Notes:
Rfam assigns this 83-nucleotide RNA sequence from Paenibacillus hemerocallicola to the family "c-di-GMP-I riboswitch aptamer". Pairs were carried over by alignment from the consensus structure, which is taken from published work. Taxonomically the source falls in Paenibacillus (Bacteria, Bacillati, Bacilli, Paenibacillaceae). Clan: c-di-GMP_I riboswitch clan.
RNA sequence: AUCGACAAAUGGCAAACCUAUCGAAAGGUAGGGACGCAAAGCUGCAGGCCUAAUGGAUUUCCUAAGGCGGCUGGGUUGCCGAA
Numbered sequence: 001a002u003c004g005a006c007a008a009a010u011g012g013c014a015a016a017c018c019u020a021u022c023g024a025a026a027g028g029u030a031g032g033g034a035c036g037c038a039a040a041g042c043u044g045c046a047g048g049c050c051u052a053a054u055g056g057a058u059u060u061c062c063u064a065a066g067g068c069g070g071c072u073g074g075g076u077u078g079c080c081g082a083a
Stems, first nucleotide, its partner, number of pairs: 012037002017032006040077004045073003048068003055062002